[Rfam]
RNA sequence: AUUGAAUAUUGGCAAACCUAUUGAAAGAUAGGGACGCAAAGCGAGAAGUCUAAAGCAUAAUGCUAUGACCGUUCAGCUGCAAAU
Dot-bracket structure: ...........((...((((((....))))))...))..(((..((((((....(((...)))...)))..))).)))......